[Rfam]
RNA sequence: UGCCAUCGCUAAGUCAAGUCUACUUCCGUGACUUUGUUUCACGUUUUCUCUAUGGAAGUAUUGUCUGUUACAGCUUUGGCAUAUCGACGCUGGUUCGCGCCGAACUUCAUUCUGAAGCUAGGCUGAUUGGUUUUCGUUUUGAAAGCCGAUCGUUAAGGACUAAGCAGUGUUCUGUUUUUGAGUUGAGUACUGCUUCGCUAUUGGCGACUUCGUAGCAGCGCUCUUAGUAACAUUUCACACAUUA
Numbered sequence: 001u002g003c004c005a006u007c008g009c010u011a012a013g014u015c016a017a018g019u020c021u022a023c024u025u026c027c028g029u030g031a032c033u034u035u036g037u038u039u040c041a042c043g044u045u046u047u048c049u050c051u052a053u054g055g056a057a058g059u060a061u062u063g064u065c066u067g068u069u070a071c072a073g074c075u076u077u078g079g080c081a082u083a084u085c086g087a088c089g090c091u092g093g094u095u096c097g098c099g100c101c102g103a104a105c106u107u108c109a110u111u112c113u114g115a116a117g118c119u120a121g122g123c124u125g126a127u128u129g130g131u132u133u134u135c136g137u138u139u140u141g142a143a144a145g146c147c148g149a150u151c152g153u154u155a156a157g158g159a160c161u162a163a164g165c166a167g168u169g170u171u172c173u174g175u176u177u178u179u180g181a182g183u184u185g186a187g188u189a190c191u192g193c194u195u196c197g198c199u200a201u202u203g204g205c206g207a208c209u210u211c212g213u214a215g216c217a218g219c220g221c222u223c224u225u226a227g228u229a230a231c232a233u234u235u236c237a238c239a240c241a242u243u244a
Stems, first nucleotide, its partner, number of pairs: 003079003017066002020063001022059006028042004090167003094163002099123003103119001105117004125151012169238002174233002177230001185223004191217004197205002
RNA: Small nucleolar RNA snR191
Organism: Aspergillus puulaauensis